[Rfam]
RNA sequence: UGGGUUCCGGUUCACGCCGCGCCUGCCUCGUUUCGACGGGGCAGGCGGAAGACGGCGACCCGGCGACC
Dot-bracket structure: ..(((.((((....(((((.................................)))))..))))..)))
RNA: L31-Actinobacteria ribosomal protein leader